[Rfam]
RNA: Small nucleolar RNA SNORD19
RNA sequence: GAGAAGUGAGGAAAAUUCAUGAAGUCUUAUCUUACAAUGAGGACUUUCAGAUCCAACUCUGAUCUCAGCUUUCUC
Numbered sequence: 001g002a003g004a005a006g007u008g009a010g011g012a013a014a015a016u017u018c019a020u021g022a023a024g025u026c027u028u029a030u031c032u033u034a035c036a037a038u039g040a041g042g043a044c045u046u047u048c049a050g051a052u053c054c055a056a057c058u059c060u061g062a063u064c065u066c067a068g069c070u071u072u073c074u075c
Stems, first nucleotide, its partner, number of pairs: 001066004